A member of the RNA family "Potassium channel RNA editing signal" from Nematostella vectensis, 114 nucleotides long. Gene Ontology term of the family: adenosine to inosine editing. The family's RNA type in Rfam is cis-regulatory element.

RNA sequence: GUUGGUUACGGUGACAUGGCGCCCCAAUCACCUUCUGGGAAAUUCAUCGGAAGUCUAUGUGCGGUCUGCGGUGUACUUACAAUCGCACUUCCGGUUCCGGUUAUUGUUAAUAAC
Numbered sequence: 001g002u003u004g005g006u007u008a009c010g011g012u013g014a015c016a017u018g019g020c021g022c023c024c025c026a027a028u029c030a031c032c033u034u035c036u037g038g039g040a041a042a043u044u045c046a047u048c049g050g051a052a053g054u055c056u057a058u059g060u061g062c063g064g065u066c067u068g069c070g071g072u073g074u075a076c077u078u079a080c081a082a083u084c085g086c087a088c089u090u091c092c093g094g095u096u097c098c099g100g101u102u103a104u105u106g107u108u109a110a111u112a113a114c
Base pairs, nucleotide, nucleotide: 001114002113004111008107009106010105011104013102014101015100018097019096021095022094037077038076040074050062